[Rfam]
RNA sequence: UGGCAACAAUGAUGACAGGAGUUUGUAACUGUAUGUAAUGUUUGUUACUACAUGGAGACAGCAGUCCCUCUAAACUGAUGUUGCCG
Number, nucleotide and partner (000 for none) at each position: 001u086002g085003g084004c083005a082006a081007c080008a000009a000010u000011g000012a000013u000014g000015a000016c000017a000018g000019g000020a000021g000022u000023u000024u000025g000026u000027a000028a000029c000030u000031g000032u000033a000034u000035g000036u000037a000038a000039u000040g000041u000042u000043u000044g000045u000046u000047a000048c000049u000050a000051c000052a000053u000054g000055g000056a000057g000058a000059c000060a000061g000062c000063a000064g000065u000066c000067c000068c000069u000070c000071u000072a000073a000074a000075c000076u000077g000078a000079u000080g007081u006082u005083g004084c003085c002086g001